[Rfam]
Source information: The family of this 107-nucleotide sequence from Plutella xylostella is "mir-8517 microRNA precursor family". Lineage of the source: Eukaryota > Hexapoda > Panorpida > Glossata > Plutella.
RNA sequence: UUAUAGGACGUUUUAGCUGUUCAGCUGAUUUGUCCCUCUUUGUCAAAGAACAUUUUGUUCUGAGUGAUAGAGAGGGACAAAACAGUUCAGCUAAAACGACCUAUAAC
Numbered sequence: 001u002u003a004u005a006g007g008a009c010g011u012u013u014u015a016g017c018u019g020u021u022c023a024g025c026u027g028a029u030u031u032g033u034c035c036c037u038c039u040u041u042g043u044c045a046a047a048g049a050a051c052a053u054u055u056u057g058u059u060c061u062g063a064g065u066g067a068u069a070g071a072g073a074g075g076g077a078c079a080a081a082a083c084a085g086u087u088c089a090g091c092u093a094a095a096a097c098g099a100c101c102u103a104u105a106a107c
Stems, first nucleotide, its partner, number of pairs: 001106006011096009023087005029071006049059004